The record is a 600-nucleotide part of an RNA from Slackia exigua, which matches "Bacterial small subunit ribosomal RNA" in Rfam. For this family Rfam cites "Crystal structure of the ribosome at 5.5 A resolution" (Yusupov et al., Science, 2001).

RNA sequence: UGACGGGGGCCCGCACAAGCAGCGGAGCAUGUGGCUUAAUUCGAAGCAACGCGAAGAACCUUACCAGGGCUUGACAUGCGGGUGAAGCGGCGGAGACGCCGUGGCCGGAAGGAGCCCGCGCAGGUGGUGCAUGGCUGUCGUCAGCUCGUGUCGUGAGAUGUUGGGUUAAGUCCCGCAACGAGCGCAACCCCCGCCGCAUGUUGCCAGCAUUCAGUUGGGCACUCAUGCGGGACCGCCGGCGCCAAGCCGGAGGAAGGCGGGGACGACGUCAAGUCAUCAUGCCCCAUGCCCUGGGCCGCACACGUGCUACAAUGGCCGGCACAGCGGGCAGCGGACCCGCGAGGGCGAGCGAAUCCCUUAAAGCCGGCCCCAGUUCGGAUCGGAGGCUGCAACCCGCCUCCGUGAAGCCGGAGUUGCUAGUAAUCGCGGAUCAGCACGCCGCGGUGAAUGCGUUCCCGGGCCUUGUACACACCGCCCGUCACACCACCCGAGUCGUCUGCACCCGAAGCCGCCGGCCCAACCCGCAAGGGAGGCGUCGAAGGUGUGGAGGGUGAGGGGGGUGAAGUCGUAACAAGGUAGCCGUACCGGAAGGUGCGGCUG
Numbered sequence: 001u002g003a004c005g006g007g008g009g010c011c012c013g014c015a016c017a018a019g020c021a022g023c024g025g026a027g028c029a030u031g032u033g034g035c036u037u038a039a040u041u042c043g044a045a046g047c048a049a050c051g052c053g054a055a056g057a058a059c060c061u062u063a064c065c066a067g068g069g070c071u072u073g074a075c076a077u078g079c080g081g082g083u084g085a086a087g088c089g090g091c092g093g094a095g096a097c098g099c100c101g102u103g104g105c106c107g108g109a110a111g112g113a114g115c116c117c118g119c120g121c122a123g124g125u126g127g128u129g130c131a132u133g134g135c136u137g138u139c140g141u142c143a144g145c146u147c148g149u150g151u152c153g154u155g156a157g158a159u160g161u162u163g164g165g166u167u168a169a170g171u172c173c174c175g176c177a178a179c180g181a182g183c184g185c186a187a188c189c190c191c192c193g194c195c196g197c198a199u200g201u202u203g204c205c206a207g208c209a210u211u212c213a214g215u216u217g218g219g220c221a222c223u224c225a226u227g228c229g230g231g232a233c234c235g236c237c238g239g240c241g242c243c244a245a246g247c248c249g250g251a252g253g254a255a256g257g258c259g260g261g262g263a264c265g266a267c268g269u270c271a272a273g274u275c276a277u278c279a280u281g282c283c284c285c286a287u288g289c290c291c292u293g294g295g296c297c298g299c300a301c302a303c304g305u306g307c308u309a310c311a312a313u314g315g316c317c318g319g320c321a322c323a324g325c326g327g328g329c330a331g332c333g334g335a336c337c338c339g340c341g342a343g344g345g346c347g348a349g350c351g352a353a354u355c356c357c358u359u360a361a362a363g364c365c366g367g368c369c370c371c372a373g374u375u376c377g378g379a380u381c382g383g384a385g386g387c388u389g390c391a392a393c394c395c396g397c398c399u400c401c402g403u404g405a406a407g408c409c410g411g412a413g414u415u416g417c418u419a420g421u422a423a424u425c426g427c428g429g430a431u432c433a434g435c436a437c438g439c440c441g442c443g444g445u446g447a448a449u450g451c452g453u454u455c456c457c458g459g460g461c462c463u464u465g466u467a468c469a470c471a472c473c474g475c476c477c478g479u480c481a482c483a484c485c486a487c488c489c490g491a492g493u494c495g496u497c498u499g500c501a502c503c504c505g506a507a508g509c510c511g512c513c514g515g516c517c518c519a520a521c522c523c524g525c526a527a528g529g530g531a532g533g534c535g536u537c538g539a540a541g542g543u544g545u546g547g548a549g550g551g552u553g554a555g556g557g558g559g560g561u562g563a564a565g566u567c568g569u570a571a572c573a574a575g576g577u578a579g580c581c582g583u584a585c586c587g588g589a590a591g592g593u594g595c596g597g598c599u600g
Base pairs, nucleotide, nucleotide: 001469002468003466004465005464007463008462009461010460011459012458013457015453016452019417020416021415022414023413024310026308027307028306029305030304031303032302033301034299035298040055041054042053043052064294065293066292067291068290069289070288077120078119079118080117081116082115083114087102088101089100090099091098092097105112106111123285124284126283127282128281129280132279133278134274135273136272137270139268140267144183145182146181147180148179149178150159151158152157162175163174164173165172189262190261191260192259194230195229196228197227198226199225200224204219205218208217209216233253234252236250237249238248239247240246314369315368316367317366318365319364320363326357327356328355331350332349336345337344338343376407381402382401383400384399385398386397387396423445424444425443426442427441428440429439472575474572477568478567482562483561484560485559487557488556489555492552493551494550496548497547498546499545500544501543502542503541508537510535511534512533513532516530517529518528577600578599579598580597581596582595583594584593585592586591
Lineage of the source: Bacteria > Bacillati > Eggerthellaceae > Slackia > Slackia exigua. The base pairs follow the family's consensus structure, which is taken from published work.